[Rfam]
RNA sequence: GAAGACCCUGUUGAGCUUGACUCUAGUCUGACUCUGUGAAGAGACAUGAAAGGUGUAGCAUAGGUGGGAGAUUGUCAAAUUGCCAUCGUUCGCGCGGUGGUCCGGUGAUCGCCAAUGAAAUACCACUACUUUGAUCGUUUCUUUACUUAUUCGGUAAAGCGAAAAAAUUGUGGCCAAUUUGGCGGUGUUUAUGUCGCUGUUGGUCAUUGUUUUCAUGUUAGAUUGAAGCUUUGUUUACAGCCGUCGCUUUGUGUCGCCAUUUGACGCAUUGUUGUACUGGGUUAUCCCGGUGUGUGGUGUAGUCAGUAUGGAUGAUCGGCGAUAGGUUUGAAGUGAUUCGCUCCGGAAACAGUGUCAGACGGGGAGUUUGACUGGGGCGGUACAUCUGUUAAACGAUAACGCAGGUGUCCUAAGGUAAGCUCAGCGAGGACAGAAACCUCGCUUAGAGUAAACGGGCACAAGCUUACUUGAUUUUGAUUUCCAGUACGAAUAGAAACCGCGAAAGCGUGGCCUAUCGAUCCUUUUGAUUGUGUAGAUUUCAUGCAAGAGGUGUCAGAAAAGUUACCACAGGGAUAACUG
Number, nucleotide and partner (000 for none) at each position: 001g000002a000003a000004g000005a000006c000007c571008c570009u569010g568011u000012u567013g566014a563015g562016c561017u560018u559019g000020a367021c366022u365023c364024u000025a000026g000027u359028c358029u357030g356031a355032c354033u000034c000035u000036g146037u145038g144039a143040a142041g141042a140043g139044a138045c137046a135047u134048g000049a132050a131051a130052g129053g000054u000055g000056u000057a000058g000059c000060a000061u000062a000063g127064g126065u125066g124067g123068g000069a000070g110071a109072u108073u107074g106075u105076c104077a000078a000079a000080u000081u000082g000083c000084c000085a000086u000087c000088g000089u000090u000091c000092g000093c000094g000095c000096g000097g000098u000099g000100g000101u000102c000103c000104g076105g075106u074107g073108a072109u071110c070111g000112c000113c000114a000115a000116u000117g000118a000119a000120a000121u000122a000123c067124c066125a065126c064127u063128a000129c052130u051131u050132u049133g000134a047135u046136c000137g045138u044139u043140u042141c041142u040143u039144u038145a037146c036147u000148u000149a000150u347151u346152c345153g344154g343155u000156a000157a000158a000159g000160c340161g339162a338163a337164a000165a000166a211167a210168u209169u000170g207171u206172g205173g204174c203175c202176a201177a200178u199179u000180u000181g000182g000183c000184g000185g000186u000187g000188u000189u000190u000191a000192u000193g000194u000195c000196g000197c000198u000199g178200u177201u176202g175203g174204u173205c172206a171207u170208u000209g168210u167211u166212u000213u000214c000215a000216u000217g000218u000219u000220a000221g000222a000223u000224u000225g000226a000227a000228g334229c333230u332231u331232u330233g000234u000235u000236u000237a000238c000239a000240g000241c000242c000243g000244u000245c000246g000247c000248u000249u000250u000251g000252u000253g000254u000255c000256g000257c000258c000259a000260u000261u000262u000263g000264a000265c000266g000267c000268a000269u000270u000271g000272u000273u000274g000275u000276a000277c000278u000279g000280g000281g000282u000283u000284a000285u000286c000287c000288c000289g000290g000291u000292g000293u000294g000295u000296g000297g000298u000299g000300u000301a000302g000303u000304c000305a000306g000307u000308a000309u000310g000311g000312a000313u000314g000315a000316u000317c000318g000319g000320c000321g000322a000323u000324a000325g000326g000327u000328u000329u000330g232331a231332a230333g229334u228335g000336a000337u163338u162339c161340g160341c000342u000343c154344c153345g152346g151347a150348a000349a000350c000351a000352g000353u000354g032355u031356c030357a029358g028359a027360c000361g000362g000363g000364g023365a022366g021367u020368u000369u000370g383371a381372c380373u379374g000375g000376g000377g000378c000379g373380g372381u371382a000383c370384a406385u405386c404387u403388g402389u401390u000391a000392a000393a000394c000395g000396a000397u000398a000399a000400c000401g389402c388403a387404g386405g385406u384407g000408u000409c510410c509411u000412a000413a000414g000415g467416u466417a465418a464419g463420c462421u447422c446423a000424g442425c441426g440427a439428g438429g437430a000431c000432a000433g000434a000435a000436a000437c429438c428439u427440c426441g425442c424443u000444u000445a000446g422447a421448g457449u456450a000451a000452a000453c000454g000455g000456g449457c448458a000459c000460a000461a000462g420463c419464u418465u417466a416467c415468u000469u000470g000471a000472u496473u495474u494475u493476g000477a491478u490479u489480u488481c000482c000483a000484g000485u000486a000487c000488g480489a479490a478491u477492a000493g475494a474495a473496a472497c000498c507499g506500c505501g000502a000503a000504a000505g500506c499507g498508u000509g410510g409511c000512c000513u000514a000515u000516c000517g000518a000519u000520c000521c549522u548523u547524u546525u545526g544527a000528u000529u543530g542531u541532g540533u000534a000535g000536a000537u000538u000539u000540c532541a531542u530543g529544c526545a525546a524547g523548a522549g521550g000551u000552g000553u000554c000555a000556g000557a000558a000559a018560a017561g016562u015563u014564a000565c000566c013567a012568c010569a009570g008571g007572g000573a000574u000575a000576a000577c000578u000579g000

Overview:
Rfam assigns this 579-nucleotide part of an RNA from Trichinella sp. T8 to the family "Eukaryotic large subunit ribosomal RNA". NCBI's taxonomy places the organism under Eukaryota, Metazoa, Nematoda, Trichinellidae, Trichinella.